[Rfam]
RNA sequence: CCUGCUGCUGUAAACAUCCGACUGAAAGCUCCAACACCUUACAGCUUCCAGUCAAGGAUGUUUACAGUAGCAGU
Numbered sequence: 001c002c003u004g005c006u007g008c009u010g011u012a013a014a015c016a017u018c019c020g021a022c023u024g025a026a027a028g029c030u031c032c033a034a035c036a037c038c039u040u041a042c043a044g045c046u047u048c049c050a051g052u053c054a055a056g057g058a059u060g061u062u063u064a065c066a067g068u069a070g071c072a073g074u
Stems, first nucleotide, its partner, number of pairs: 002073005008067012021052004026047005
This 74-nucleotide RNA sequence from Anhinga rufa belongs to the Rfam family "mir-30 microRNA precursor family". Lineage of the source: Eukaryota > Dipnotetrapodomorpha > Theropoda > Neoaves > Anhinga. Rfam describes the family as follows. This family consists of the mammalian microRNA (miRNA) precursor mir-30a. Animal miRNAs are transcribed as ~70nt precursors and subsequently processed by the Dicer enzyme to give a ~22nt product. It scores 50 bits against the family's covariance model. On this family, see Lagos-Quintana et al., Science 2001: "Identification of novel genes coding for small expressed RNAs".